[Rfam]
RNA sequence: GUUAUCAUAGCUUUGGCGCUUUAGCUGUAUGAUAGCUUUGAUACCUUCAUAAAGCUAGAUUACCAAAGCAUUGAAAAU
Numbered sequence: 001g002u003u004a005u006c007a008u009a010g011c012u013u014u015g016g017c018g019c020u021u022u023a024g025c026u027g028u029a030u031g032a033u034a035g036c037u038u039u040g041a042u043a044c045c046u047u048c049a050u051a052a053a054g055c056u057a058g059a060u061u062a063c064c065a066a067a068g069c070a071u072u073g074a075a076a077a078u
Stems, first nucleotide, its partner, number of pairs: 001078003005074001007072001010069007018061001020059007028051005

Notes: Shown here is a 78-nucleotide sequence from Lucilia cuprina, a member of the family "mir-9/mir-79 microRNA precursor family". The organism belongs to Lucilia, within Eukaryota. On this family, see Lagos-Quintana et al., Science 2001: "Identification of novel genes coding for small expressed RNAs". Pairs were carried over by alignment from the consensus structure, which was predicted with RNAalifold.